[Rfam]
RNA sequence: UGACGCGAUGUGGGAGAACCUCCAUGUCGAGGCGCCGUAGGAGCAAUCUCCUCCCCGAGAAUCUCUCAGGCCCAAGCACCACACCGCCGAG
Numbered sequence: 001u002g003a004c005g006c007g008a009u010g011u012g013g014g015a016g017a018a019c020c021u022c023c024a025u026g027u028c029g030a031g032g033c034g035c036c037g038u039a040g041g042a043g044c045a046a047u048c049u050c051c052u053c054c055c056c057g058a059g060a061a062u063c064u065c066u067c068a069g070g071c072c073c074a075a076g077c078a079c080c081a082c083a084c085c086g087c088c089g090a091g
Stems, first nucleotide, its partner, number of pairs: 006086002009083005019032004034071003037067001041065003047058002
This 91-nucleotide RNA sequence from Mycobacterium tuberculosis belongs to the Rfam family "Glycine riboswitch aptamer". The pairing is the family consensus, mapped onto this sequence. It is one of the family's seed sequences. About the family: This family represents the bacterial glycine riboswitch. NCBI's taxonomy places the organism under Bacteria, Mycobacteriales, Mycobacteriaceae, Mycobacterium, Mycobacterium tuberculosis. Its Rfam clan is "Glycine riboswitch clan".